[Rfam]
RNA sequence: GUCAACGACCCGUCGCUAAAAGCGAAGGCUUCUAAAAGCUCAAGUUGACCAGCCUAAGUGCUACGCGCACUACGUUAACGGUAAGUGUUAAAGUUCCUACCUUGGGAUGCGUGCCAGUUCCAAGCUCUAGAACCAAGUGGUUAAACAGGUGUAAAGGGUUAAGCCAGUGCUGCUUGGAAAGUACCGACCGUUAACAUUGGCGAGGCAAACAUUAC
Numbered sequence: 001g002u003c004a005a006c007g008a009c010c011c012g013u014c015g016c017u018a019a020a021a022g023c024g025a026a027g028g029c030u031u032c033u034a035a036a037a038g039c040u041c042a043a044g045u046u047g048a049c050c051a052g053c054c055u056a057a058g059u060g061c062u063a064c065g066c067g068c069a070c071u072a073c074g075u076u077a078a079c080g081g082u083a084a085g086u087g088u089u090a091a092a093g094u095u096c097c098u099a100c101c102u103u104g105g106g107a108u109g110c111g112u113g114c115c116a117g118u119u120c121c122a123a124g125c126u127c128u129a130g131a132a133c134c135a136a137g138u139g140g141u142u143a144a145a146c147a148g149g150u151g152u153a154a155a156g157g158g159u160u161a162a163g164c165c166a167g168u169g170c171u172g173c174u175u176g177g178a179a180a181g182u183a184c185c186g187a188c189c190g191u192u193a194a195c196a197u198u199g200g201c202g203a204g205g206c207a208a209a210c211a212u213u214a215c
Base pairs, nucleotide, nucleotide: 001049002048003047004046005045006044010028011027013025014024015023016022029038030037031036052201053200054199056197057071058070059069060068061067074195075194076193077192078191079190087188088187089186095131096130101124102123103122104121105120106119107118108117112207113206114205115204133177134176135175136174137173138172139171140170141169145168146167148165149164152162153160154159
This 215-nucleotide RNA sequence from Coleofasciculus chthonoplastes belongs to the Rfam family "HNH endonuclease-associated RNA and ORF (HEARO) RNA". By type it is a non-coding RNA gene. The literature on the family includes a 2009 paper in Nature by Weinberg et al., "Exceptional structured noncoding RNAs revealed by bacterial metagenome analysis". Lineage of the source: Bacteria > Bacillati > Cyanobacteriota > Coleofasciculales > Coleofasciculus chthonoplastes.